[Rfam]
This 147-nucleotide RNA sequence from Brucella gallinifaecis belongs to the Rfam family "Alphaproteobacterial sRNA ar9".
NCBI's taxonomy places the organism under Bacteria, Pseudomonadati, Pseudomonadota, Alphaproteobacteria, Brucella.
The match comes from Rfam's covariance-model search (130 bits).
On this family, see del Val et al., RNA Biol 2012: "A survey of sRNA families in alpha-proteobacteria".
The pairing is the family consensus, mapped onto this sequence.
Nucleotides: 147
Base pairs, nucleotide, nucleotide: 003147004146005145006144011028012027013026014025015024016023034111035110036109037108044056045055046054047053058104059103060102061101062100064082065081066080067078068077069076084095085094086093121140122139123138124137125136126135127134128133
Number, partner (000 for none) and nucleotide at each position: 001000a002000u003147a004146a005145g006144a007000u008000g009000g010000a011028c012027a013026a014025u015024g016023g017000a018000a019000a020000u021000a022000a023016c024015c025014a026013u027012u028011g029000u030000u031000u032000a033000a034111c035110g036109c037108g038000g039000u040000c041000a042000a043000a044056g045055u046054c047053u048000u049000g050000g051000g052000a053047g054046g055045a056044u057000g058104g059103a060102u061101c062100c063000a064082g065081g066080c067078g068077c069076g070000a071000u072000a073000u074000c075000u076069c077068g078067c079000u080066g081065c082064c083000g084095c085094c086093a087000g088000u089000a090000a091000a092000a093086u094085g095084g096000a097000a098000a099000c100062g101061g102060g103059u104058c105000g106000a107000a108037c109036g110035c111034g112000u113000a114000u115000u116000u117000g118000a119000c120000u121140a122139g123138c124137a125136a126135g127134g128133c129000g130000a131000a132000a133128g134127c135126c136125u137124u138123g139122c140121u141000u142000u143000u144006u145005u146004u147003u

By type it is a small RNA.